Shown here is an 80-nucleotide RNA sequence from Ornithorhynchus anatinus, a member of the family "ctgf/hcs24 CAESAR". The family has 9 seed sequences and 518 matches in Rfam 15.1. The source organism's lineage runs through Eukaryota, Metazoa, Deuterostomia, Sarcopterygii and Ornithorhynchus. Rfam describes the family as follows. The 3' UTR of human connective tissue growth factor/hypertrophic chondrocyte specific 24 (ctgf/hcs24) mRNA has been shown to repress ctgf gene expression. Reference identified a minimal RNA element, predicted to form a stable secondary structure, which acts as a post-transcriptional cis-acting element of structure-anchored repression (CAESAR), probably through direct interactions with as yet unknown nuclear factors.
RNA sequence: ACGGAGACAUGGCCUGAAGCCACCCUGCGACAGACACUUAUUACCAGACUGGCAACUUGAACUGAUUCACAUCUCAUUUU
Numbered sequence: 001a002c003g004g005a006g007a008c009a010u011g012g013c014c015u016g017a018a019g020c021c022a023c024c025c026u027g028c029g030a031c032a033g034a035c036a037c038u039u040a041u042u043a044c045c046a047g048a049c050u051g052g053c054a055a056c057u058u059g060a061a062c063u064g065a066u067u068c069a070c071a072u073c074u075c076a077u078u079u080u
Base pairs, nucleotide, nucleotide: 004075005074006073007072010022011021012020013019027070029068030067